[Rfam]
RNA sequence: GCCCCUGUGGUGUAGUCGGGCUAAGCAUUCGAGCCUCUCGAGCUCGUGACUCGGGUUCAAAUCCCGGCAGGGGCA
Numbered sequence: 001g002c003c004c005c006u007g008u009g010g011u012g013u014a015g016u017c018g019g020g021c022u023a024a025g026c027a028u029u030c031g032a033g034c035c036u037c038u039c040g041a042g043c044u045c046g047u048g049a050c051u052c053g054g055g056u057u058c059a060a061a062u063c064c065c066g067g068c069a070g071g072g073g074c075a
Base pairs, nucleotide, nucleotide: 001074002073003072004071005070006069007068010028011027012026013025030046031045032044033043034042051067052066053065054064055063